[Rfam]
RNA: Plastid-psbN 5UTR RNA
RNA sequence: UGCAACAUCCAUCAAAGGAAUAGUUCCCCACCUAGGAGCUACUUUACCAUAUUCCAAAACA
Numbered sequence: 001u002g003c004a005a006c007a008u009c010c011a012u013c014a015a016a017g018g019a020a021u022a023g024u025u026c027c028c029c030a031c032c033u034a035g036g037a038g039c040u041a042c043u044u045u046a047c048c049a050u051a052u053u054c055c056a057a058a059a060c061a
Base pairs, nucleotide, nucleotide: 017045018044019043021041022040023039024038025037026036027035
Dot-bracket structure: ................(((.(((((((.......))))))).)))................